RNA sequence: UCAAUAUCAAAAUAACGUCACACAUAUACCGUCACGUGUUCCUGGGUGCCUCCCUAGCUUGAUUUUUGUUAGGGGGUUGGAUUCGCGGGGUGUAUGGAGGCCUAAC
Numbered sequence: 001u002c003a004a005u006a007u008c009a010a011a012a013u014a015a016c017g018u019c020a021c022a023c024a025u026a027u028a029c030c031g032u033c034a035c036g037u038g039u040u041c042c043u044g045g046g047u048g049c050c051u052c053c054c055u056a057g058c059u060u061g062a063u064u065u066u067u068g069u070u071a072g073g074g075g076g077u078u079g080g081a082u083u084c085g086c087g088g089g090g091u092g093u094a095u096g097g098a099g100g101c102c103u104a105a106c
Stems, first nucleotide, its partner, number of pairs: 023096008035087004040081003048077005
RNA: t44 RNA
Organism: gamma proteobacterium IMCC1989